[Rfam]
RNA sequence: AGCACAAAUGAUGAUGAUACGGGACUUAAUGCUGAAGUGUGAUGUCACUUUUGAGCAGAAACUGAUGUGC
Numbered sequence: 001a002g003c004a005c006a007a008a009u010g011a012u013g014a015u016g017a018u019a020c021g022g023g024a025c026u027u028a029a030u031g032c033u034g035a036a037g038u039g040u041g042a043u044g045u046c047a048c049u050u051u052u053g054a055g056c057a058g059a060a061a062c063u064g065a066u067g068u069g070c
Stems, first nucleotide, its partner, number of pairs: 002070005
Background: A member of the RNA family "Small nucleolar RNA SNORD82" from Tricholaema leucomelas, 70 nucleotides long. NCBI's taxonomy places the organism under Eukaryota, Gnathostomata, Sauria, Aves, Tricholaema lacrymosa. snoRNA U82 or Z25 is found in both humans and mice. It is annotated as a C/D-box small nucleolar RNA. For this family Rfam cites "Purified box C/D snoRNPs are able to reproduce site-specific 2'-O-methylation of target RNA in vitro" (Galardi et al., Mol Cell Biol, 2002).